[Rfam]
RNA sequence: UUUGCUAUAAUAGGAAAGUUGUUUCGAGCAACCCUUGGUACUUGUAUUCUUGAGAGGAUGAAAAACUUUUAAGGAUAAAUUCCCCUUUGACCAAGCAUAUUAUAGGUGAUAACAAUCACUAAAGAGGAGUCUAAAUG
Numbered sequence: 001u002u003u004g005c006u007a008u009a010a011u012a013g014g015a016a017a018g019u020u021g022u023u024u025c026g027a028g029c030a031a032c033c034c035u036u037g038g039u040a041c042u043u044g045u046a047u048u049c050u051u052g053a054g055a056g057g058a059u060g061a062a063a064a065a066c067u068u069u070u071a072a073g074g075a076u077a078a079a080u081u082c083c084c085c086u087u088u089g090a091c092c093a094a095g096c097a098u099a100u101u102a103u104a105g106g107u108g109a110u111a112a113c114a115a116u117c118a119c120u121a122a123a124g125a126g127g128a129g130u131c132u133a134a135a136u137g
Stems, first nucleotide, its partner, number of pairs: 018032005034095006047126005105120005